[Rfam]
RNA sequence: CCCUUUGCAAGCGGCCCGACGGCGCCUAUAUCAGAGAUGUUCCUCAGGGAACUAUGGGCAUAAACGCGCAUGUAAUAAACGGAUCGGACCCGGGGGCGGUACCCGGCGGCUCCACCAAACAUCCCUUCGUUGGGGGAAAAUGGGGCCGAAACAGGAUCGACGAACGCGUAAAGAUGUAGCUUUGUCCCGGUGAGAUACCACCGUUAUCGGUUCACAAAGUACAAUUGCCAACGACAAUCGUGCUCCGGUUGCAGUUGCUGCGUAAGCAGUGACGAGACCGAAAUCUAAGUCCUUGCGCCUAGCAGCGUAAGGCGGGGUUCGCAGGCACCUGGCAACAGAAGCCUGCACU
Numbered sequence: 001c002c003c004u005u006u007g008c009a010a011g012c013g014g015c016c017c018g019a020c021g022g023c024g025c026c027u028a029u030a031u032c033a034g035a036g037a038u039g040u041u042c043c044u045c046a047g048g049g050a051a052c053u054a055u056g057g058g059c060a061u062a063a064a065c066g067c068g069c070a071u072g073u074a075a076u077a078a079a080c081g082g083a084u085c086g087g088a089c090c091c092g093g094g095g096g097c098g099g100u101a102c103c104c105g106g107c108g109g110c111u112c113c114a115c116c117a118a119a120c121a122u123c124c125c126u127u128c129g130u131u132g133g134g135g136g137a138a139a140a141u142g143g144g145g146c147c148g149a150a151a152c153a154g155g156a157u158c159g160a161c162g163a164a165c166g167c168g169u170a171a172a173g174a175u176g177u178a179g180c181u182u183u184g185u186c187c188c189g190g191u192g193a194g195a196u197a198c199c200a201c202c203g204u205u206a207u208c209g210g211u212u213c214a215c216a217a218a219g220u221a222c223a224a225u226u227g228c229c230a231a232c233g234a235c236a237a238u239c240g241u242g243c244u245c246c247g248g249u250u251g252c253a254g255u256u257g258c259u260g261c262g263u264a265a266g267c268a269g270u271g272a273c274g275a276g277a278c279c280g281a282a283a284u285c286u287a288a289g290u291c292c293u294u295g296c297g298c299c300u301a302g303c304a305g306c307g308u309a310a311g312g313c314g315g316g317g318u319u320c321g322c323a324g325g326c327a328c329c330u331g332g333c334a335a336c337a338g339a340a341g342c343c344u345g346c347a348c349u
Base pairs, nucleotide, nucleotide: 039052040051041050042049043048056187057186058185059184060183066180067179068177069176070175071174080166081165084163085162086161090106091105092104093103094102107148108147109146110145111144112143113142188203189202190201191200194213195212197211198210199209315330316329317328318327321346322345323344324343325342326341

Alphaproteobacteria transfer-messenger RNA: a 349-nucleotide RNA sequence from Sagittula stellata. Rfam's curators put it in the seed alignment. Taxonomically the source falls in Sagittula stellata (Bacteria, Pseudomonadati, Pseudomonadota, Sagittula). The base pairs follow the family's consensus structure, which is taken from published work.